A member of the RNA family "mir-190 microRNA precursor family" from Petromyzon marinus, 78 nucleotides long. The family has 76 seed sequences and 1,667 matches in Rfam 15.1. The sequence is in the family's curated seed alignment.
[Rfam]
RNA sequence: ACUGCUGUCUGAUAUGUUUGGUAUAUAAGGUUGUAUUUGUGGAGACCCAACUAUAUAUCAAACAUAUUCUCACAGAGG
Numbered sequence: 001a002c003u004g005c006u007g008u009c010u011g012a013u014a015u016g017u018u019u020g021g022u023a024u025a026u027a028a029g030g031u032u033g034u035a036u037u038u039g040u041g042g043a044g045a046c047c048c049a050a051c052u053a054u055a056u057a058u059c060a061a062a063c064a065u066a067u068u069c070u071c072a073c074a075g076a077g078g
Stems, first nucleotide, its partner, number of pairs: 005075004011068015029052005
Dot-bracket structure: ....((((..(((((((((((((((...(((((..............))))).)))))))))))))))...))))...